RNA: ROOL RNA
RNA sequence: GUAUAAUUGUGCAAUAAUCGGCAACUCAGUGAAGAGGGCUUAGUCAGCCUUGCUGAGAACGGUUUGAAUGCAGAGUUUUAUUUAUAUGGGAUACUGUAUAAUUAAGGCUUCUUGUUGAUAGUGAUUGAUACAAGGUAGAAGCAGAUGCUUCAAGUGCAAGAAUCGGUUGCCGGUCUAUAUGAGUAAAAUGUUAGUUCAAAGAGUCGGAGCGACAAUUGAGGAGGUUCACAGCAAUGGGGACCAAUGCGGCUUUUAAGUGCUAUAUGGGGACAUAUAGAUUACUGAAAGUAAUUCCAAAACAAGCUCUUGCCAAUGAAUCGGAGAAAUCCGAGUAUAAGACAAAACAGAACUGGACGAGUACCACAAGGCGAUUUUACAAAUCAAGAAUAAUUGGUAAUUCUAAUGCUGAAUGACGUGGGAAAGUUGGGAGUAUCAAUCUCCUCAGAGCAUUGGGCGAAAGCCGGGGUGCACAGGUUAGGACGACGGUCCGAAGCUUCAGGUGUGUCUCCUUUGUGACAGAAUAUUACGUAGUAUAGAGUUGGGUAGGGCGAAGGUCCGCCGAUUAUUGUUUUUUUUU
Numbered sequence: 001g002u003a004u005a006a007u008u009g010u011g012c013a014a015u016a017a018u019c020g021g022c023a024a025c026u027c028a029g030u031g032a033a034g035a036g037g038g039c040u041u042a043g044u045c046a047g048c049c050u051u052g053c054u055g056a057g058a059a060c061g062g063u064u065u066g067a068a069u070g071c072a073g074a075g076u077u078u079u080a081u082u083u084a085u086a087u088g089g090g091a092u093a094c095u096g097u098a099u100a101a102u103u104a105a106g107g108c109u110u111c112u113u114g115u116u117g118a119u120a121g122u123g124a125u126u127g128a129u130a131c132a133a134g135g136u137a138g139a140a141g142c143a144g145a146u147g148c149u150u151c152a153a154g155u156g157c158a159a160g161a162a163u164c165g166g167u168u169g170c171c172g173g174u175c176u177a178u179a180u181g182a183g184u185a186a187a188a189u190g191u192u193a194g195u196u197c198a199a200a201g202a203g204u205c206g207g208a209g210c211g212a213c214a215a216u217u218g219a220g221g222a223g224g225u226u227c228a229c230a231g232c233a234a235u236g237g238g239g240a241c242c243a244a245u246g247c248g249g250c251u252u253u254u255a256a257g258u259g260c261u262a263u264a265u266g267g268g269g270a271c272a273u274a275u276a277g278a279u280u281a282c283u284g285a286a287a288g289u290a291a292u293u294c295c296a297a298a299a300c301a302a303g304c305u306c307u308u309g310c311c312a313a314u315g316a317a318u319c320g321g322a323g324a325a326a327u328c329c330g331a332g333u334a335u336a337a338g339a340c341a342a343a344a345c346a347g348a349a350c351u352g353g354a355c356g357a358g359u360a361c362c363a364c365a366a367g368g369c370g371a372u373u374u375u376a377c378a379a380a381u382c383a384a385g386a387a388u389a390a391u392u393g394g395u396a397a398u399u400c401u402a403a404u405g406c407u408g409a410a411u412g413a414c415g416u417g418g419g420a421a422a423g424u425u426g427g428g429a430g431u432a433u434c435a436a437u438c439u440c441c442u443c444a445g446a447g448c449a450u451u452g453g454g455c456g457a458a459a460g461c462c463g464g465g466g467u468g469c470a471c472a473g474g475u476u477a478g479g480a481c482g483a484c485g486g487u488c489c490g491a492a493g494c495u496u497c498a499g500g501u502g503u504g505u506c507u508c509c510u511u512u513g514u515g516a517c518a519g520a521a522u523a524u525u526a527c528g529u530a531g532u533a534u535a536g537a538g539u540u541g542g543g544u545a546g547g548g549c550g551a552a553g554g555u556c557c558g559c560c561g562a563u564u565a566u567u568g569u570u571u572u573u574u575u576u577u
Base pairs, nucleotide, nucleotide: 009572011570014567017564021560025057026056027055028054029053036050037049038048039047040046060165061164062163063162064161065160074109075108076107077106078105079104082101083100084099085098086097087096088095089094110135111134112133113132114131115130120125138151139150140149141148142147171558173540174538176536186525193351194350195349196348203340204339205338206307207306208305209304210303223242224241225240226239249289250288251287252286253285254284257279258278260277263274264273265272268295269294270293308370309369310368311367318331319330320329321328322327355423361418362417363416364415406499407498408497427442428441430439444512445511446510447462453461463509464508465507466506472501473496474495476492478489479488480487481486546557547556548555549554